About this RNA: This 97-nucleotide sequence from Aerococcus sp. HMSC10H05 belongs to the Rfam family "Fluoride riboswitch aptamer (crcB RNA motif)". The organism belongs to Aerococcus, within Bacteria. Pairs were carried over by alignment from the consensus structure, which is taken from published work. The match comes from Rfam's covariance-model search (46 bits).

RNA sequence: AUAAAAAGAGGGAAUGAGGUUCUCCCUGGUCAAGUAGAUGGUGAUUUUAGGCCAUCCCAUACCGAACCGCUGAAAAGCUGAUGACUUCUGCAAGUAA
Numbered sequence: 001a002u003a004a005a006a007a008g009a010g011g012g013a014a015u016g017a018g019g020u021u022c023u024c025c026c027u028g029g030u031c032a033a034g035u036a037g038a039u040g041g042u043g044a045u046u047u048u049a050g051g052c053c054a055u056c057c058c059a060u061a062c063c064g065a066a067c068c069g070c071u072g073a074a075a076a077g078c079u080g081a082u083g084a085c086u087u088c089u090g091c092a093a094g095u096a097a
Stems, first nucleotide, its partner, number of pairs: 010026004016088006069078003